[Rfam]
Record summary:
The record is a 188-nucleotide sequence from Hydrogenibacillus schlegelii, which matches "SAM riboswitch aptamer (S box leader)" in Rfam.
RNA sequence: UUCUUAUCGAGAGCGGCGGAGGGACUGGCCCGAUGAAGCCCGGCAACCGUCUUGCGCGGAUGCCUUCGCGACGGCGGAAAAGAGGCCGCUGCGGCGAAGCACGCCGCGCAGGAAAAGGUGCCAACUCCUGCGGGAUGGGCGCCUUGCGCAAGAAGCCUUGUGCGCGAGGCCAUUCCGAGAGAUAAGAA
Dot-bracket structure: ((((((((....(.(((...(((.[.[[)))......))))((((.((.((((((((((............................................))))))))))...))))))...(]].]((((((((...............................))))))))..)))))))))
The source organism's lineage runs through Bacteria, Bacillati, Bacillota, Thermicanaceae and Hydrogenibacillus.